RNA sequence: UUAUAAGAAAAUUUUCACUUUUUAGGUUCAUUGAAUAACUGAUGUAUCUGGUCUAUAUUAUAGAUCAGAUACAUCAGUUAUUCCAUGAACCUAAAAAGUAAAUUUUUUCUUAUAA
Numbered sequence: 001u002u003a004u005a006a007g008a009a010a011a012u013u014u015u016c017a018c019u020u021u022u023u024a025g026g027u028u029c030a031u032u033g034a035a036u037a038a039c040u041g042a043u044g045u046a047u048c049u050g051g052u053c054u055a056u057a058u059u060a061u062a063g064a065u066c067a068g069a070u071a072c073a074u075c076a077g078u079u080a081u082u083c084c085a086u087g088a089a090c091c092u093a094a095a096a097a098g099u100a101a102a103u104u105u106u107u108u109c110u111u112a113u114a115a
Base pairs, nucleotide, nucleotide: 002114003113004112005111006110007109008107009106010105011104014101015100018098019097020096021095022094023093024092025091027089028088029087030086031085033083034082035081036080037079038078039077040076041075042074043073044072049067050066051065052064
RNA: MIR2593 microRNA precursor family